[Rfam]
RNA sequence: UCGUCAGUGAGGUACAUCCUGACCUGCCCCGCCCCCACUGCGCGGGCAGCGCGUGAUGAGGCGCGGCGUGAUGACGCAAUGAUUACGUCACCGCCGGCGGCGCGGAGCCGCGCAACAAGGCCCGCGCCGCCAUUGGACUCUGAC
Numbered sequence: 001u002c003g004u005c006a007g008u009g010a011g012g013u014a015c016a017u018c019c020u021g022a023c024c025u026g027c028c029c030c031g032c033c034c035c036c037a038c039u040g041c042g043c044g045g046g047c048a049g050c051g052c053g054u055g056a057u058g059a060g061g062c063g064c065g066g067c068g069u070g071a072u073g074a075c076g077c078a079a080u081g082a083u084u085a086c087g088u089c090a091c092c093g094c095c096g097g098c099g100g101c102g103c104g105g106a107g108c109c110g111c112g113c114a115a116c117a118a119g120g121c122c123c124g125c126g127c128c129g130c131c132a133u134u135g136g137a138c139u140c141u142g143a144c
Stems, first nucleotide, its partner, number of pairs: 024049003028046005033040001073091001076088002080085001097130009
The record is a 144-nucleotide RNA from Hylia prasina, which matches "U8 small nucleolar RNA" in Rfam.
NCBI's taxonomy places the organism under Eukaryota, Craniata, Theropoda, Australaves, Hylia.
A search with the family's covariance model found it, with a score of 42 bits.
The family's consensus secondary structure is taken from published work.